[Rfam]
RNA sequence: GUACUCUGCUUUCCCUUCAAUACACGCAUAAAUCAUUCGCCUUUUACUCAAGAUUUGCAUGGAGGGGAUUAAUUGAUGAGUCUAUCAAACAAUUUUUUGUACGCCGAAACUGGAACGCCAA
Numbered sequence: 001g002u003a004c005u006c007u008g009c010u011u012u013c014c015c016u017u018c019a020a021u022a023c024a025c026g027c028a029u030a031a032a033u034c035a036u037u038c039g040c041c042u043u044u045u046a047c048u049c050a051a052g053a054u055u056u057g058c059a060u061g062g063a064g065g066g067g068a069u070u071a072a073u074u075g076a077u078g079a080g081u082c083u084a085u086c087a088a089a090c091a092a093u094u095u096u097u098u099g100u101a102c103g104c105c106g107a108a109a110c111u112g113g114a115a116c117g118c119c120a121a
Base pairs, nucleotide, nucleotide: 003081004080005079006078011068012067013066014065015064016063017062018061019060030056031055032054033053034052036050100121103119105117106116
U5 spliceosomal RNA: a 121-nucleotide RNA from Fopius arisanus.
Rfam's curators write: U5 RNA is a component of both types of known spliceosome. The precise function of this molecule is unknown, though it is known that the 5' loop is required for splice site selection and p220 binding, and that both the 3' stem-loop and the Sm site are important for Sm protein binding and cap methylation.
It scores 51 bits against the family's covariance model.
Rfam classes the family as a spliceosomal small nuclear RNA.
The literature on the family includes a 1996 paper in J Biol Chem by Hinz et al., "Domain analysis of human U5 RNA. Cap trimethylation, protein binding, and spliceosome assembly".
NCBI's taxonomy places the organism under Eukaryota, Ecdysozoa, Eumetabola, Opiinae, Fopius.